[Rfam]
Rfam assigns this 69-nucleotide sequence from Desulfofustis glycolicus to the family "int-alpA RNA".
Acidobacteria (1 example), Planctomycetes (1 example), Proteobacteria.
The family's consensus secondary structure is taken from published work.
A search with the family's covariance model found it, with a score of 50 bits.

RNA sequence: GGACAGGCUAGGGUCGCUCCCGAAAAGCCGUGACCCUGACGGCCUGCCUGUUCGGUUAUACGGCAAGGG
Dot-bracket structure: ((((((((..(((.....))).....((((...[[[[..))))..))))))))............]]]]